Source information: This 195-nucleotide RNA sequence from [Enterobacter] lignolyticus belongs to the Rfam family "Yersinia sRNA 276". Pairs were carried over by alignment from the consensus structure, which was predicted with RNAfold. A reference for the family is Nuss et al. (2015), "Transcriptomic profiling of Yersinia pseudotuberculosis reveals reprogramming of the Crp regulon by temperature and uncovers Crp as a master regulator of small RNAs", PLoS Genet. Lineage of the source: Bacteria > Gammaproteobacteria > Enterobacteriaceae > Pluralibacter > [Enterobacter] lignolyticus. It scores 185 bits against the family's covariance model.
[Rfam]
RNA sequence: CACCGACAUCAGCGACUCGUUCUGCGAGCCGUUGCCGACCGCCAGAUACGAGUGCAUGCCGAGCUCGCGCAUCUGCUGUUCGCCGAUCACGCGGGUGAUGAUGUUUUUACCGUACUGAUCCGCCAGCUGGCGCGCCUGGGAGGCGAGGUAGGCGGCGUUACAGAUGUUCGGCGGCAUGUUGCCGAGAUCUUUCGC
Numbered sequence: 001c002a003c004c005g006a007c008a009u010c011a012g013c014g015a016c017u018c019g020u021u022c023u024g025c026g027a028g029c030c031g032u033u034g035c036c037g038a039c040c041g042c043c044a045g046a047u048a049c050g051a052g053u054g055c056a057u058g059c060c061g062a063g064c065u066c067g068c069g070c071a072u073c074u075g076c077u078g079u080u081c082g083c084c085g086a087u088c089a090c091g092c093g094g095g096u097g098a099u100g101a102u103g104u105u106u107u108u109a110c111c112g113u114a115c116u117g118a119u120c121c122g123c124c125a126g127c128u129g130g131c132g133c134g135c136c137u138g139g140g141a142g143g144c145g146a147g148g149u150a151g152g153c154g155g156c157g158u159u160a161c162a163g164a165u166g167u168u169c170g171g172c173g174g175c176a177u178g179u180u181g182c183c184g185a186g187a188u189c190u191u192u193c194g195c
Base pairs, nucleotide, nucleotide: 005189006188012032013031014030016028017027018026019025020024034042035041050059062077063076064075078135079134081132082131083130084129085128087126091123092122093121094120095119096118099112100111102109103108136163137162138161140159141158143156144155167186168185169184170183171182172181